[Rfam]
RNA sequence: CUGGAGAGCCCUCAGCCACCCGGCUGAGGCGCCGAAGGAGCAAGGCCCACACCGCCCCACCGGGCGCAGGCCGAAUCUCUCAGGCACCAAGGACAG
Dot-bracket structure: (((......((((............)))).(((((..(((...((((.....................))))....))))).)))........)))
Glycine riboswitch aptamer: a 96-nucleotide RNA from Ideonella livida. It scores 45 bits against the family's covariance model. The organism belongs to Ideonella, within Bacteria.